[Rfam]
RNA sequence: GGCCUGAUGCCACGUCUCUGGUAGCUAUAUGAGCACUGACUGGAGAUGCUAUGAUUAGGCCGAAACAGAGUUGUUUCAACGUUUCGCAAGUUGAUAGGAACCUGGGGACUGCCUCUAUCUGUCCACAGAGCCGGUUUCUGUGAUUAUAUUU
Numbered sequence: 001g002g003c004c005u006g007a008u009g010c011c012a013c014g015u016c017u018c019u020g021g022u023a024g025c026u027a028u029a030u031g032a033g034c035a036c037u038g039a040c041u042g043g044a045g046a047u048g049c050u051a052u053g054a055u056u057a058g059g060c061c062g063a064a065a066c067a068g069a070g071u072u073g074u075u076u077c078a079a080c081g082u083u084u085c086g087c088a089a090g091u092u093g094a095u096a097g098g099a100a101c102c103u104g105g106g107g108a109c110u111g112c113c114u115c116u117a118u119c120u121g122u123c124c125a126c127a128g129a130g131c132c133g134g135u136u137u138c139u140g141u142g143a144u145u146a147u148a149u150u151u
Stems, first nucleotide, its partner, number of pairs: 002060007009052001013048006020041003024034003084143005097132002102128003106124004
Rfam assigns this 151-nucleotide RNA sequence from Digitaria exilis to the family "Small nucleolar RNA snoR2/U65". By type it is an H/ACA-box small nucleolar RNA. Taxonomically the source falls in Digitaria (Eukaryota, Poales, Paniceae, Anthephorinae). The family is grouped with related families in Rfam's "SNORA65 clan". Rfam links the family to the GO terms RNA processing and nucleolus. Rfam 15.1 lists 908 matches to the family in 230 species. The family's consensus secondary structure was predicted with WAR. A search with the family's covariance model found it, with a score of 132 bits.